[Rfam]
RNA: FMN riboswitch aptamer (RFN element)
RNA sequence: ACGCGCUGGCGGGGCUCGGUGAAAUUCCGAACCGGCGGUGAUCCACGGUCCGACCGUGGUAAGCCCGCGACCCGGACGGCUUCGGCCGGACGGUGGACCUGGUGAGAAUCCGGGGCCGACGGUUGGGGUGCGGCUCGUCCGCCCCCAGAAAGUCCGGAUGGGAGACAGCGCGC
Numbered sequence: 001a002c003g004c005g006c007u008g009g010c011g012g013g014g015c016u017c018g019g020u021g022a023a024a025u026u027c028c029g030a031a032c033c034g035g036c037g038g039u040g041a042u043c044c045a046c047g048g049u050c051c052g053a054c055c056g057u058g059g060u061a062a063g064c065c066c067g068c069g070a071c072c073c074g075g076a077c078g079g080c081u082u083c084g085g086c087c088g089g090a091c092g093g094u095g096g097a098c099c100u101g102g103u104g105a106g107a108a109u110c111c112g113g114g115g116c117c118g119a120c121g122g123u124u125g126g127g128g129u130g131c132g133g134c135u136c137g138u139c140c141g142c143c144c145c146c147a148g149a150a151a152g153u154c155c156g157g158a159u160g161g162g163a164g165a166c167a168g169c170g171c172g173c
Stems, first nucleotide, its partner, number of pairs: 003171006010164001017029003033118002035068004063116002072093002098114005120156003
Dot-bracket structure: ..((((((.(......(((.......)))...((((((........................[[))))...((..................))....(((((.......)))))]])).(((...............................))).......).))))))..